[Rfam]
RNA sequence: AGCUUUGCGCAGUGGCAGUAUCGCAGCCAGUGAGGUUUACCCGAGGCGCGAUUAUUGCUAAUUGAAAGCUGACUACGGUGAUAGCUGCACAUCUGUGAAUUGUACACUUUAAGUGGGUGAGUUGUAUGAUAUGUGAAUCGUAUCUCAAUAA
Number, nucleotide and partner (000 for none) at each position: 001a000002g000003c000004u000005u000006u000007g000008c000009g000010c000011a000012g000013u000014g000015g000016c000017a000018g000019u000020a052021u051022c050023g049024c048025a000026g047027c046028c045029a000030g000031u000032g000033a000034g042035g041036u000037u000038u000039a000040c000041c035042c034043g000044a000045g028046g027047c026048g024049c023050g022051a021052u020053u000054a000055u000056u000057g000058c000059u000060a000061a000062u000063u000064g000065a000066a000067a000068g000069c000070u000071g000072a000073c000074u000075a000076c000077g000078g000079u000080g000081a127082u126083a125084g000085c000086u000087g122088c121089a000090c119091a118092u117093c116094u115095g114096u000097g000098a000099a000100u000101u000102g000103u000104a000105c000106a000107c000108u000109u000110u000111a000112a000113g000114u095115g094116g093117g092118u091119g090120a000121g088122u087123u000124g000125u083126a082127u081128g000129a000130u000131a000132u000133g000134u000135g000136a000137a000138u000139c000140g000141u150142a149143u148144c000145u000146c000147a000148a143149u142150a141151a000
The record is a 151-nucleotide RNA from Tupaia belangeri, which matches "U4 spliceosomal RNA" in Rfam.
The literature on the family includes a 2018 paper in Cell Res by Zhan et al., "Structures of the human pre-catalytic spliceosome and its precursor spliceosome".
Lineage of the source: Eukaryota > Opisthokonta > Sarcopterygii > Tetrapoda > Tupaia belangeri.
Pairs were carried over by alignment from the consensus structure, which is taken from published work.